[Rfam]
A member of the RNA family "Flavo-1 RNA" from Flavobacteriaceae bacterium Ap0902, 143 nucleotides long. The match comes from Rfam's covariance-model search (54 bits).

RNA sequence: AUUUAGCCCUGAUUGGCGUGGAAAUCCUCUUUUCUGAAUCUGCGAACAAAUUACGACGAAAAAGAGCGACCAGCGGAAGCUCCUUUUUCUAGAUUAUUUGUAAAGAUUUAGAAAAGAGAUUGAAACAUAAAGCAGGUUCUCGG
Numbered sequence: 001a002u003u004u005a006g007c008c009c010u011g012a013u014u015g016g017c018g019u020g021g022a023a024a025u026c027c028u029c030u031u032u033u034c035u036g037a038a039u040c041u042g043c044g045a046a047c048a049a050a051u052u053a054c055g056a057c058g059a060a061a062a063a064g065a066g067c068g069a070c071c072a073g074c075g076g077a078a079g080c081u082c083c084u085u086u087u088u089c090u091a092g093a094u095u096a097u098u099u100g101u102a103a104a105g106a107u108u109u110a111g112a113a114a115a116g117a118g119a120u121u122g123a124a125a126c127a128u129a130a131a132g133c134a135g136g137u138u139c140u141c142g143g
Stems, first nucleotide, its partner, number of pairs: 009135003013131002018126002023121004029116013